[Rfam]
RNA sequence: GAGCAACGAUGAAAAGGUUUUAUUGCUAUGGACCUUUAUAACUGUGAAGGUUUCUACACUUGAUCUGAGCUCA
Numbered sequence: 001g002a003g004c005a006a007c008g009a010u011g012a013a014a015a016g017g018u019u020u021u022a023u024u025g026c027u028a029u030g031g032a033c034c035u036u037u038a039u040a041a042c043u044g045u046g047a048a049g050g051u052u053u054c055u056a057c058a059c060u061u062g063a064u065c066u067g068a069g070c071u072c073a
Stems, first nucleotide, its partner, number of pairs: 001072004013037007
Shown here is a 73-nucleotide sequence from Odocoileus virginianus, a member of the family "Small nucleolar RNA U2-30". It is annotated as a C/D-box small nucleolar RNA. The match comes from Rfam's covariance-model search (86 bits). Pairs were carried over by alignment from the consensus structure, which is taken from published work.